The family of this 341-nucleotide RNA sequence from Stakelama marina is "Alphaproteobacteria transfer-messenger RNA". Rfam classes the family as a non-coding RNA gene. On this family, see Williams and Bartel, RNA 1996: "Phylogenetic analysis of tmRNA secondary structure". The family's consensus secondary structure is taken from published work. Rfam's curators write: Bacterial tmRNA, also known as 10Sa RNA or SsrA, is named for its dual tRNA and mRNA-like properties. Its role is to liberate the mRNA from a stalled ribosome. To accomplish this part of the tmRNA is used as a reading frame that ends in a translation stop signal. The broken mRNA is replaced in the ribosome by the tmRNA and translation of the tmRNA leads to addition of a proteolysis tag to the incomplete protein enabling recognition by a protease. Recently a number of permuted tmRNA genes have been found encoded in two parts. tmRNAs have been identified in eubacteria and some chloroplasts but are absent from archaeal and eukaryote nuclear genomes. The organism belongs to Stakelama, within Bacteria. A search with the family's covariance model found it, with a score of 230 bits. Gene Ontology term of the family: RNA catabolic process.

RNA sequence: CGGCUUUUCUUUGCUGCACAAGCCCCUAUAUUGGGCUUGCCGGUCUCGUGCCGGCUAUGGCGAUAAACUGCGGCGUGCAAUAGGCGCAGCGGACCCGGGGGCAGUACCCGGCGGCUCCACCACCACCCGUCCGAACGGCGGAUGAUGACGGGGCCGAACCAGGAUCGACGUGUGUUGAAAAGCGCAGCUUUCGCCCGGAAUGGGACCACCGAAACGGCCCAUAUUCACAAGUGCCAACGAUAACGAGGCGCUCGCGAUUGCGGCCUAACCAAAGACCUCACGGUCUAGGUUAGAACGACAAAAGCGCGGUUGGACCGCACCGGGCAACAGAAGCGGAUUCC
Numbered sequence: 001c002g003g004c005u006u007u008u009c010u011u012u013g014c015u016g017c018a019c020a021a022g023c024c025c026c027u028a029u030a031u032u033g034g035g036c037u038u039g040c041c042g043g044u045c046u047c048g049u050g051c052c053g054g055c056u057a058u059g060g061c062g063a064u065a066a067a068c069u070g071c072g073g074c075g076u077g078c079a080a081u082a083g084g085c086g087c088a089g090c091g092g093a094c095c096c097g098g099g100g101g102c103a104g105u106a107c108c109c110g111g112c113g114g115c116u117c118c119a120c121c122a123c124c125a126c127c128c129g130u131c132c133g134a135a136c137g138g139c140g141g142a143u144g145a146u147g148a149c150g151g152g153g154c155c156g157a158a159c160c161a162g163g164a165u166c167g168a169c170g171u172g173u174g175u176u177g178a179a180a181a182g183c184g185c186a187g188c189u190u191u192c193g194c195c196c197g198g199a200a201u202g203g204g205a206c207c208a209c210c211g212a213a214a215c216g217g218c219c220c221a222u223a224u225u226c227a228c229a230a231g232u233g234c235c236a237a238c239g240a241u242a243a244c245g246a247g248g249c250g251c252u253c254g255c256g257a258u259u260g261c262g263g264c265c266u267a268a269c270c271a272a273a274g275a276c277c278u279c280a281c282g283g284u285c286u287a288g289g290u291u292a293g294a295a296c297g298a299c300a301a302a303a304g305c306g307c308g309g310u311u312g313g314a315c316c317g318c319a320c321c322g323g324g325c326a327a328c329a330g331a332a333g334c335g336g337a338u339u340c341c
Base pairs, nucleotide, nucleotide: 039055040054041053042052043051059195060194061193062192063191070188071187073185074184075183076182085174086173087172089171090170091169095111096110097109098108099107112156113155114154115153116152117151118150196211197210198209201221202220203219206217207216307322308321309320310319313339314338316336